The record is an 82-nucleotide sequence from Gossypium anomalum, which matches "Plastid-psbM 3UTR RNA" in Rfam. For this family Rfam cites "Retrograde signaling in plants: A critical review focusing on the GUN pathway and beyond" (Richter et al., Plant Commun, 2023). Rfam's curators write: Plastid psbM is a non-coding RNA (ncRNA) recognised in plastids. The family's consensus secondary structure was predicted with LocARNA.
RNA sequence: AACUUGAUAGUAUAGUGGAAAAAAAGUAAAUCUUUCUACCAUAUUAUUUCUUUCUAUUAUUGUAAUGUAAAAAAAUACAAGC
Numbered sequence: 001a002a003c004u005u006g007a008u009a010g011u012a013u014a015g016u017g018g019a020a021a022a023a024a025a026g027u028a029a030a031u032c033u034u035u036c037u038a039c040c041a042u043a044u045u046a047u048u049u050c051u052u053u054c055u056a057u058u059a060u061u062g063u064a065a066u067g068u069a070a071a072a073a074a075a076u077a078c079a080a081g082c
Stems, first nucleotide, its partner, number of pairs: 006048008015039007023031001